[Rfam]
Source information: The record is a 130-nucleotide RNA from Salibaculum griseiflavum, which matches "Alphaproteobacterial ar14" in Rfam. It is annotated as a small RNA. Smr14C2 was renamed NfeR1 (Nodule Formation Efficiency RNA) highly expressed in salt stress and during the symbiotic interaction on legume roots.
RNA sequence: AAGAAUCGGGGCUUCUCUCCUCCUCCCUGAAGCCCUGAAACAGGUGUUCCGCUCUCUCCUCCUCCCUGAGCGGCGCACCGAACAGAAGACGCGGCGGUGCCUCUCCUCCUCCCUGGCAUCGCCGCACCUU
Numbered sequence: 001a002a003g004a005a006u007c008g009g010g011g012c013u014u015c016u017c018u019c020c021u022c023c024u025c026c027c028u029g030a031a032g033c034c035c036u037g038a039a040a041c042a043g044g045u046g047u048u049c050c051g052c053u054c055u056c057u058c059c060u061c062c063u064c065c066c067u068g069a070g071c072g073g074c075g076c077a078c079c080g081a082a083c084a085g086a087a088g089a090c091g092c093g094g095c096g097g098u099g100c101c102u103c104u105c106c107u108c109c110u111c112c113c114u115g116g117c118a119u120c121g122c123c124g125c126a127c128c129u130u
Stems, first nucleotide, its partner, number of pairs: 006038002009035007045077003049073006091125011